The family of this 113-nucleotide RNA from Castanea mollissima is "MIR394 microRNA precursor family". Rfam links the family to the GO terms miRNA-mediated post-transcriptional gene silencing and RISC complex. The source organism's lineage runs through Eukaryota, rosids, Fagales, Fagaceae and Castanea. On this family, see Jones-Rhoades and Bartel, Mol Cell 2004: "Computational identification of plant microRNAs and their targets, including a stress-induced miRNA".
RNA sequence: GUUGCAGAGCCAAUUUGGCAUUCUGUCCACCUCCUUGGUUCAAUGUUCUUGCUAAGUAACCAAAUUGAGUUACAUAUUUGGAGGCGGCCAGCAUGCCUAAUUGACUCUGUAAA
Numbered sequence: 001g002u003u004g005c006a007g008a009g010c011c012a013a014u015u016u017g018g019c020a021u022u023c024u025g026u027c028c029a030c031c032u033c034c035u036u037g038g039u040u041c042a043a044u045g046u047u048c049u050u051g052c053u054a055a056g057u058a059a060c061c062a063a064a065u066u067g068a069g070u071u072a073c074a075u076a077u078u079u080g081g082a083g084g085c086g087g088c089c090a091g092c093a094u095g096c097c098u099a100a101u102u103g104a105c106u107c108u109g110u111a112a113a
Stems, first nucleotide, its partner, number of pairs: 011103001015099001017097004024090002027087002030084005